[Rfam]
RNA sequence: GCAUCCUACUGUUAAUAUGCACGGUGGAGAUGUUUGGCCGAUUUAACCGCAUAUUAUGGAGAUACUAUCAUGGCAUUAACUGUCGAAAAUAAAGCUGCAAUCGUUGCUGAAUAUCAACAAGCCGAA
Number, nucleotide and partner (000 for none) at each position: 001g000002c000003a000004u000005c000006c000007u026008a025009c024010u023011g022012u021013u000014a000015a000016u000017a000018u000019g000020c000021a012022c011023g010024g009025u008026g007027g000028a000029g000030a000031u000032g000033u000034u000035u000036g000037g000038c000039c000040g000041a000042u000043u000044u000045a000046a000047c000048c000049g000050c000051a000052u000053a000054u000055u000056a000057u078058g077059g076060a000061g074062a000063u000064a000065c000066u000067a000068u000069c000070a000071u000072g000073g000074c061075a000076u059077u058078a057079a000080c000081u000082g000083u000084c000085g000086a000087a000088a000089a000090u000091a000092a000093a000094g000095c000096u000097g000098c000099a000100a000101u000102c000103g000104u000105u000106g000107c000108u000109g000110a000111a000112u000113a000114u000115c000116a000117a000118c000119a000120a000121g000122c000123c000124g000125a000126a000

Shown here is a 126-nucleotide sequence from Oleispira antarctica, a member of the family "Ribosomal S15 leader". The organism belongs to Oleispira antarctica, within Bacteria. Rfam links the family to the GO term regulation of translation, ncRNA-mediated. The match comes from Rfam's covariance-model search (57 bits). The family's RNA type in Rfam is cis-regulatory leader. The E. coli Ribosomal S15 gene 5' UTR can form two alternative structures. One that is a series of three hairpins, The other includes a pseudoknot. This structure causes translational regulation of the S15 protein. The alignment of this family contains only the final two hairpins which are conserved in other species, and also includes the complete region that forms the alternate structures.